[Rfam]
Nucleotides: 072
Base pairs, nucleotide, nucleotide: 001072002071003070005068
Number, partner (000 for none) and nucleotide at each position: 001072u002071c003070u004000u005068c006000c007000a008000u009000g010000a011000u012000g013000a014000u015000u016000u017000g018000c019000a020000c021000a022000g023000a024000c025000u026000u027000u028000c029000g030000u031000u032000c033000u034000u035000c036000u037000g038000a039000g040000u041000g042000u043000a044000c045000u046000g047000a048000a049000g050000c051000c052000a053000g054000c055000c056000u057000u058000u059000c060000u061000g062000u063000c064000c065000u066000g067000a068005g069000a070003a071002g072001a
The family of this 72-nucleotide sequence from Echeneis naucrates is "Small nucleolar RNA SNORD59". Gene Ontology terms of the family: RNA processing and nucleolus. The family's consensus secondary structure was predicted with ILM. On this family, see Galardi et al., Mol Cell Biol 2002: "Purified box C/D snoRNPs are able to reproduce site-specific 2'-O-methylation of target RNA in vitro". The family has 24 seed sequences and 1,355 matches in Rfam 15.1. Its Rfam clan is "SNORD59 clan".